A member of the RNA family "Bacterial RNase P class A" from Bacteroides sp. CAG:714, 356 nucleotides long.

RNA sequence: ACAGUCGGCCGGCUUGUCGCUGGUACUUCGGUACAAGAGGAAAGUCCGGGCAACACAGAGCAUCCUACUUCCUAACAGAAAGCUAUCCGCGAGGGUAGAGCCAUGCAGAAGAAAAGAACCGCCUCCUCCGGGAGGUAAGGGUGAGAAGGUAGGGUAAGAGCCUACCAGCCGUAUAGCGAUAUGCGGGCUGUGCAUCUUAGGAGUUGUAAGGUCAUGUAAACCGGCACUAACGAGGGUUGCUCGCCCCACGUCGGAGGGUGGACCGCUAGAACCGUCUGGUAACAGGCGGUGUAGAUAAAUGACAGGCUCCCCUGCUUGCAGGGAGACAGAACCCGGCUUAUAGGCCGGCUGUUAUU
Numbered sequence: 001a002c003a004g005u006c007g008g009c010c011g012g013c014u015u016g017u018c019g020c021u022g023g024u025a026c027u028u029c030g031g032u033a034c035a036a037g038a039g040g041a042a043a044g045u046c047c048g049g050g051c052a053a054c055a056c057a058g059a060g061c062a063u064c065c066u067a068c069u070u071c072c073u074a075a076c077a078g079a080a081a082g083c084u085a086u087c088c089g090c091g092a093g094g095g096u097a098g099a100g101c102c103a104u105g106c107a108g109a110a111g112a113a114a115a116g117a118a119c120c121g122c123c124u125c126c127u128c129c130g131g132g133a134g135g136u137a138a139g140g141g142u143g144a145g146a147a148g149g150u151a152g153g154g155u156a157a158g159a160g161c162c163u164a165c166c167a168g169c170c171g172u173a174u175a176g177c178g179a180u181a182u183g184c185g186g187g188c189u190g191u192g193c194a195u196c197u198u199a200g201g202a203g204u205u206g207u208a209a210g211g212u213c214a215u216g217u218a219a220a221c222c223g224g225c226a227c228u229a230a231c232g233a234g235g236g237u238u239g240c241u242c243g244c245c246c247c248a249c250g251u252c253g254g255a256g257g258g259u260g261g262a263c264c265g266c267u268a269g270a271a272c273c274g275u276c277u278g279g280u281a282a283c284a285g286g287c288g289g290u291g292u293a294g295a296u297a298a299a300u301g302a303c304a305g306g307c308u309c310c311c312c313u314g315c316u317u318g319c320a321g322g323g324a325g326a327c328a329g330a331a332c333c334c335g336g337c338u339u340a341u342a343g344g345c346c347g348g349c350u351g352u353u354a355u356u
Stems, first nucleotide, its partner, number of pairs: 001352010011341001012307007020037002023034004042339003046336005051206004058242004063202005068082003072078001083098001085096004099197002105193003119140002121136006148166006168188001169186007210264004221254005234246004271290008
The base pairs follow the family's consensus structure, which is taken from published work.